[Rfam]
Source information: This 79-nucleotide RNA from Muraenolepis orangiensis belongs to the Rfam family "Small nucleolar RNA SNORD79". Rfam 15.1 lists 784 matches to the family in 651 species. It scores 52 bits against the family's covariance model. From the family's description: snoRNA U79 or Z22 is found in intron 7 of the gas5 gene in humans and is also present in mice. Gene Ontology terms of the family: RNA processing and nucleolus. Its Rfam clan is "SNORD74 clan". A reference for the family is Galardi et al. (2002), "Purified box C/D snoRNPs are able to reproduce site-specific 2'-O-methylation of target RNA in vitro", Mol Cell Biol.
RNA sequence: UGCUACAAGUGAUGACUUUAAAACAUUGGGAAUCUCUCUGAAAAACGAUGAUAGAUGCUUUUAUGUUGCUGAUGCAGUG
Numbered sequence: 001u002g003c004u005a006c007a008a009g010u011g012a013u014g015a016c017u018u019u020a021a022a023a024c025a026u027u028g029g030g031a032a033u034c035u036c037u038c039u040g041a042a043a044a045a046c047g048a049u050g051a052u053a054g055a056u057g058c059u060u061u062u063a064u065g066u067u068g069c070u071g072a073u074g075c076a077g078u079g
Stems, first nucleotide, its partner, number of pairs: 001079004006074002